About this RNA:
SAM riboswitch aptamer (S box leader): a 110-nucleotide sequence from Clostridium oryzae. Gene Ontology term of the family: regulation of gene expression.
[Rfam]
RNA sequence: UCCUUAUCAAGAGAGAUGGAGGGGCUGGCCCGAUGAAGUUUCAGCAACCACUGCGUUUCAUUAGCGUAGAAGGUGCUAAAUCCUGCAAAUUUAGUUUUGAGAGAUGAGGG
Number, nucleotide and partner (000 for none) at each position: 001u110002c109003c108004u107005u106006a105007u104008c103009a000010a000011g000012a000013g042014a041015g040016a039017u038018g000019g000020a000021g031022g030023g029024g000025c085026u000027g083028g082029c023030c022031c021032g000033a000034u000035g000036a000037a000038g017039u016040u015041u014042c013043a077044g076045c075046a074047a000048c073049c072050a000051c069052u068053g067054c066055g065056u064057u000058u000059c000060a000061u000062u000063a000064g056065c055066g054067u053068a052069g051070a000071a000072g049073g048074u046075g045076c044077u043078a000079a000080a000081u102082c028083c027084u000085g025086c099087a098088a097089a096090u000091u000092u000093a000094g000095u000096u089097u088098u087099g086100a000101g000102a081103g008104a007105u006106g005107a004108g003109g002110g001